This 159-nucleotide RNA from Acinetobacter guillouiae belongs to the Rfam family "Pseudomonadales-1 RNA". NCBI's taxonomy places the organism under Bacteria, Pseudomonadota, Moraxellaceae, Acinetobacter, Acinetobacter guillouiae. Rfam's curators put it in the seed alignment.
[Rfam]
RNA sequence: CCUAUGUGGUUUCGUCACACAUUGAGUUAGCCUCAGAGCCUUAAAUUGUGGGUGACUCCCCGACCAAAGAGAUUGAAAGACACAGAGCAGAUCAAUAGCUAACUUUGAGAAGUUUGUUGUGUUGUGUUGAGUAGCGGUAGAUCGGUAGCCGAGCUGAUC
Numbered sequence: 001c002c003u004a005u006g007u008g009g010u011u012u013c014g015u016c017a018c019a020c021a022u023u024g025a026g027u028u029a030g031c032c033u034c035a036g037a038g039c040c041u042u043a044a045a046u047u048g049u050g051g052g053u054g055a056c057u058c059c060c061c062g063a064c065c066a067a068a069g070a071g072a073u074u075g076a077a078a079g080a081c082a083c084a085g086a087g088c089a090g091a092u093c094a095a096u097a098g099c100u101a102a103c104u105u106u107g108a109g110a111a112g113u114u115u116g117u118u119g120u121g122u123u124g125u126g127u128u129g130a131g132u133a134g135c136g137g138u139a140g141a142u143c144g145g146u147a148g149c150c151g152a153g154c155u156g157a158u159c
Base pairs, nucleotide, nucleotide: 002024004022005021006020007019008018014056015055016054017053027102028101029100030099031098046063047062048061050059051058052057073137074136075135079128080127081126082125083124084123085122087120088119089118090117092116094114095113096112097104140159141158142157143156144155145154146153
Dot-bracket structure: .(.(((((.....{{{{))))).)..[[[[[..............(((.(((}}}}))).))).........(((...(((((((.((((.(.((((]]]]].).......))).))))).)))))))......)))..(((((((......)))))))